[Rfam]
RNA sequence: GGAGCAGGACGAGCUGCCGCUGCGUGUCAUUUGUACACGGAGAGGAAAGUCCGGGCUCCGCAGGGCAAGACGCUGGGUAACCCCCAGGUGAAGUGAUUCACGGACAGUGCCACAGAAAACAAACCGCCUGCCAUGCAGGUAAGGGUGAAACGGUGGGGUAAGAGCCCACCAGAGGUGACGGUGACGGCACCUGCUAGGUAAACCCCGUCUGGAGCAAGACCAAAUAGGAAGGCGCCAAGGCCGGCCCGGCCGAUGCCUUCGGGUAGGUUGCUUGAGGCUGCAGGUAACUGCAGCCCUAGAGGAAUGGCAGCUGCUUCCCUUUAUGGAAGAACAGAACCCGGCUUAUAGUCCGGCUCCCGUC
Numbered sequence: 001g002g003a004g005c006a007g008g009a010c011g012a013g014c015u016g017c018c019g020c021u022g023c024g025u026g027u028c029a030u031u032u033g034u035a036c037a038c039g040g041a042g043a044g045g046a047a048a049g050u051c052c053g054g055g056c057u058c059c060g061c062a063g064g065g066c067a068a069g070a071c072g073c074u075g076g077g078u079a080a081c082c083c084c085c086a087g088g089u090g091a092a093g094u095g096a097u098u099c100a101c102g103g104a105c106a107g108u109g110c111c112a113c114a115g116a117a118a119a120c121a122a123a124c125c126g127c128c129u130g131c132c133a134u135g136c137a138g139g140u141a142a143g144g145g146u147g148a149a150a151c152g153g154u155g156g157g158g159u160a161a162g163a164g165c166c167c168a169c170c171a172g173a174g175g176u177g178a179c180g181g182u183g184a185c186g187g188c189a190c191c192u193g194c195u196a197g198g199u200a201a202a203c204c205c206c207g208u209c210u211g212g213a214g215c216a217a218g219a220c221c222a223a224a225u226a227g228g229a230a231g232g233c234g235c236c237a238a239g240g241c242c243g244g245c246c247c248g249g250c251c252g253a254u255g256c257c258u259u260c261g262g263g264u265a266g267g268u269u270g271c272u273u274g275a276g277g278c279u280g281c282a283g284g285u286a287a288c289u290g291c292a293g294c295c296c297u298a299g300a301g302g303a304a305u306g307g308c309a310g311c312u313g314c315u316u317c318c319c320u321u322u323a324u325g326g327a328a329g330a331a332c333a334g335a336a337c338c339c340g341g342c343u344u345a346u347a348g349u350c351c352g353g354c355u356c357c358c359g360u361c
Base pairs, nucleotide, nucleotide: 001357002356003355004354005353007351008350009349010348011346012312013311014310015309016308017307018306020042021041023039024038025037026036027035047344048343049342051341052340053339054338055337056214057213058212059211063247064246065245066244068210069209070208071207072206073087074086075085076084077083088101089100090099091098092097102205103204107203108202109199110198111197124144125143126140127139128138129137130136131135152170153169154168155167156166157165172194173192174191175190176189177188179186180185218269219268220267221266228260229259230258231257232256233255239251240250241249242248276295277294278293279292280291281290282289283288
The family of this 361-nucleotide RNA from Oleidesulfovibrio alaskensis is "Bacterial RNase P class A". The source organism's lineage runs through Bacteria, Desulfovibrionales, Desulfovibrionaceae, Oleidesulfovibrio and Oleidesulfovibrio alaskensis.